[Rfam]
RNA sequence: GGAUGUGAGGGUGAUCUGGCUGUGACAUGUCACCCCAUUGAUCACCAGGGUUGGUUUGGCCGAUCUGGCUGGCUAGGCAGAUGUCCCCUUCCUCUCUCACCGCUCCAUGUGCAUCCCUCCCGAGGCUAUGUGCUCAGUCAAAGAAGGCGACCUUCCCUGAUAGAGGAGAGGACCAUUCUUCGAUCAAGUGUAUACGAGUAGCUGCACUCCCCUGCUAGAAUCUCCAAAGUCCCAAGGUCCAUUUGUAGGAGAACAUAGGGUAGUCAAGCUUCCAAGACUCCAGAUAAACCCAAAUGAGGCACUGCAUGUGGCAGUCUGCCUUUCUUU
Numbered sequence: 001g002g003a004u005g006u007g008a009g010g011g012u013g014a015u016c017u018g019g020c021u022g023u024g025a026c027a028u029g030u031c032a033c034c035c036c037a038u039u040g041a042u043c044a045c046c047a048g049g050g051u052u053g054g055u056u057u058g059g060c061c062g063a064u065c066u067g068g069c070u071g072g073c074u075a076g077g078c079a080g081a082u083g084u085c086c087c088c089u090u091c092c093u094c095u096c097u098c099a100c101c102g103c104u105c106c107a108u109g110u111g112c113a114u115c116c117c118u119c120c121c122g123a124g125g126c127u128a129u130g131u132g133c134u135c136a137g138u139c140a141a142a143g144a145a146g147g148c149g150a151c152c153u154u155c156c157c158u159g160a161u162a163g164a165g166g167a168g169a170g171g172a173c174c175a176u177u178c179u180u181c182g183a184u185c186a187a188g189u190g191u192a193u194a195c196g197a198g199u200a201g202c203u204g205c206a207c208u209c210c211c212c213u214g215c216u217a218g219a220a221u222c223u224c225c226a227a228a229g230u231c232c233c234a235a236g237g238u239c240c241a242u243u244u245g246u247a248g249g250a251g252a253a254c255a256u257a258g259g260g261u262a263g264u265c266a267a268g269c270u271u272c273c274a275a276g277a278c279u280c281c282a283g284a285u286a287a288a289c290c291c292a293a294a295u296g297a298g299g300c301a302c303u304g305c306a307u308g309u310g311g312c313a314g315u316c317u318g319c320c321u322u323u324c325u326u327u
Stems, first nucleotide, its partner, number of pairs: 001106003005100007013091002018088002024085004028079004033072002035068003040065004045059002114171002116166004120137001122135002125133002138160003146155002201269003207263002210260005222251004228246001292327003296322005301315005
The family of this 327-nucleotide RNA sequence from Pteropus vampyrus is "7SK RNA". From the family's description: 7SK was discovered as an abundant small nuclear RNA in the mid-70s but a possible function has only recently been suggested. Two independent studies have found that 7SK RNA binds the CDK9/cyclin T complex (known as elongation factor P-TEFb). P-TEFb activates transcription by phosphorylating the C-terminal domain of RNA polymerase II. This process is negatively regulated by the 7SK RNP. The secondary structure of 7SK RNA shown here was proposed by Wasserman and Steitz on the basis of chemical modification and enzymatic cleavage experiments. This family contains a number of annotated pseudogenes and 7SK derived repeats. The threshold is artificially high to minimise the pseudogene count. The organism belongs to Pteropus, within Eukaryota. A search with the family's covariance model found it, with a score of 307 bits. The family's RNA type in Rfam is non-coding RNA gene.